[Rfam]
RNA sequence: UGGAGGAACAAUCGCAGUGGCCGGGCCAGCUCUGGAAACCUGGAGUCAGCCCCCGCAGGAACUCCGGAGCUCUCCGUCUGCAGGGCCUGGAGGCUCUAGGGCGGG
Number, nucleotide and partner (000 for none) at each position: 001u000002g097003g096004a095005g094006g000007a000008a000009c089010a088011a000012u085013c084014g000015c000016a000017g000018u000019g078020g077021c076022c000023g074024g073025g072026c000027c000028a071029g070030c069031u068032c067033u066034g065035g064036a063037a000038a000039c059040c058041u057042g056043g000044a000045g000046u000047c000048a000049g000050c000051c000052c000053c000054c000055g000056c042057a041058g040059g039060a000061a000062c000063u036064c035065c034066g033067g032068a031069g030070c029071u028072c025073u024074c023075c000076g021077u020078c019079u000080g000081c000082a000083g000084g013085g012086c000087c000088u010089g009090g000091a000092g000093g000094c005095u004096c003097u002098a000099g000100g000101g000102c000103g000104g000105g000
mir-8834 microRNA precursor family: a 105-nucleotide sequence from Canis lupus. A search with the family's covariance model found it, with a score of 81 bits. Its family is annotated with RISC complex and miRNA-mediated post-transcriptional gene silencing in the Gene Ontology. The family's consensus secondary structure was predicted with RNAalifold.